Record summary:
A member of the RNA family "Small Cajal body specific RNA 21" from Otolemur garnettii, 138 nucleotides long. scaRNAs are a specific class of small nuclear RNAs which localise to the Cajal bodies and guide the modification of RNA polymerase II transcribed spliceosomal RNAs U1, U2, U4, U5 and U12. ACA68 (SCARNA21) is a member of the H/ACA class of snoRNAs that guide the sites of modification of uridines to pseudouridines. This snoRNA was identified by computational screening and its expression in mouse experimentally verified by Northern blot and primer extension analysis. ACA68 is proposed to guide the pseudouridylation of residue U19 in U12 snRNA. The family's consensus secondary structure was predicted with RNAalifold. The literature on the family includes a 2002 paper in EMBO J by Darzacq et al., "Cajal body-specific small nuclear RNAs: a novel class of 2'-O-methylation and pseudouridylation guide RNAs". The family has 24 seed sequences and 278 matches in Rfam 15.1.
RNA sequence: UGGCUUCAUUUCCUGGGGGGUGGGCUCAGCCUACACCACCUCCUCUCAGCUGAGCCUAGAGUAGAGGGCCAGACAUCCUUCCUAUAGGAGAGGCAUUUAAGUAAGAAGCCUCUCCUGGGCUGUCUCAGCCUCACAUUC
Numbered sequence: 001u002g003g004c005u006u007c008a009u010u011u012c013c014u015g016g017g018g019g020g021u022g023g024g025c026u027c028a029g030c031c032u033a034c035a036c037c038a039c040c041u042c043c044u045c046u047c048a049g050c051u052g053a054g055c056c057u058a059g060a061g062u063a064g065a066g067g068g069c070c071a072g073a074c075a076u077c078c079u080u081c082c083u084a085u086a087g088g089a090g091a092g093g094c095a096u097u098u099a100a101g102u103a104a105g106a107a108g109c110c111u112c113u114c115c116u117g118g119g120c121u122g123u124c125u126c127a128g129c130c131u132c133a134c135a136u137u138c
Stems, first nucleotide, its partner, number of pairs: 002056005015044009066132002068129002072125001077119003086111003